[Rfam]
Shown here is a 144-nucleotide RNA from Glycine max, a member of the family "Small nucleolar RNA snoR136". A reference for the family is Chen and Wu (2009), "Mining small RNA sequencing data: a new approach to identify small nucleolar RNAs in Arabidopsis", Nucleic Acids Res. Gene Ontology terms of the family: nucleolus and RNA processing. Rfam classes the family as an H/ACA-box small nucleolar RNA. The family's consensus secondary structure was predicted with mfold.
RNA sequence: AAGGCUUCAGCUUUCUUUGAGAUUUUUGCUUGUACUUUUUCCAAUGUGUUUGGUGGUGCUUAAUUGAAGCCAAUAAUGUGUGUUCGCCUUGCUAUCCAGUGUUGCAAUUUUGAUGCAGCAUUUGGACAUUGAGGAACUAAAUUA
Numbered sequence: 001a002a003g004g005c006u007u008c009a010g011c012u013u014u015c016u017u018u019g020a021g022a023u024u025u026u027u028g029c030u031u032g033u034a035c036u037u038u039u040u041c042c043a044a045u046g047u048g049u050u051u052g053g054u055g056g057u058g059c060u061u062a063a064u065u066g067a068a069g070c071c072a073a074u075a076a077u078g079u080g081u082g083u084u085c086g087c088c089u090u091g092c093u094a095u096c097c098a099g100u101g102u103u104g105c106a107a108u109u110u111u112g113a114u115g116c117a118g119c120a121u122u123u124g125g126a127c128a129u130u131g132a133g134g135a136a137c138u139a140a141a142u143u144a
Stems, first nucleotide, its partner, number of pairs: 001074001003071003008066003013063001018058002026056005032050001034049002082137004088131001090128002095126005104116003
The organism belongs to Glycine subgen. Soja, within Eukaryota.